This 133-nucleotide sequence from Tupaia belangeri belongs to the Rfam family "Small nucleolar RNA SNORA68". By type it is an H/ACA-box small nucleolar RNA. The base pairs follow the family's consensus structure, which was predicted with PFOLD. The source organism's lineage runs through Eukaryota, Chordata, Vertebrata, Euarchontoglires and Tupaia. It is one of the family's seed sequences. On this family, see Ganot et al., Genes Dev 1997: "The family of box ACA small nucleolar RNAs is defined by an evolutionarily conserved secondary structure and ubiquitous sequence elements essential for RNA accumulation". U68 is a member of the H/ACA class of small nucleolar RNAs (snoRNAs) which act as guides in the the modification of uridines to pseudouridines.
[Rfam]
RNA sequence: CUCGCACCUAAACCCAAGGGCCGCGGUUUGCCGUAGCUGCGACUUAAACAGGGGUGCGGACAGCAAGCGGACCUCGUCGCCUUUGGGGAGCUGUGGCCAUGCCCCUCAAAGUGAAUCUGGAGGUCCCACACCU
Numbered sequence: 001c002u003c004g005c006a007c008c009u010a011a012a013c014c015c016a017a018g019g020g021c022c023g024c025g026g027u028u029u030g031c032c033g034u035a036g037c038u039g040c041g042a043c044u045u046a047a048a049c050a051g052g053g054g055u056g057c058g059g060a061c062a063g064c065a066a067g068c069g070g071a072c073c074u075c076g077u078c079g080c081c082u083u084u085g086g087g088g089a090g091c092u093g094u095g096g097c098c099a100u101g102c103c104c105c106u107c108a109a110a111g112u113g114a115a116u117c118u119g120g121a122g123g124u125c126c127c128a129c130a131c132c133u
Stems, first nucleotide, its partner, number of pairs: 002059008019044002022041007069126007081111008090102002